[Rfam]
Nucleotides: 079
Stems, first nucleotide, its partner, number of pairs: 001079001004076003009071002011067010023055007
Number, partner (000 for none) and nucleotide at each position: 001079a002000u003000c004076g005075g006074a007000g008000a009071g010070g011067g012066u013065u014064c015063c016062u017061g018060g019059c020058a021000c022000c023055g024054u025053g026052a027051u028050u029049u030000g031000a032000u033000g034000c035000a036000a037000a038000a039000a040000c041000a042000g043000a044000a045000a046000c047000c048000a049029a050028a051027a052026u053025c054024a055023c056000a057000u058020u059019g060018c061017c062016a063015g064014g065013g066012a067011u068000u069000u070010c071009c072000a073000c074006u075005c076004u077000g078000u079001u
Rfam assigns this 79-nucleotide RNA sequence from Lepisosteus oculatus to the family "mir-23 microRNA precursor family". Gene Ontology terms of the family: RISC complex and gene silencing by miRNA. The organism belongs to Lepisosteus, within Eukaryota. The base pairs follow the family's consensus structure, which was predicted with PFOLD. For this family Rfam cites "The developmental miRNA profiles of zebrafish as determined by small RNA cloning" (Chen et al., Genes Dev, 2005).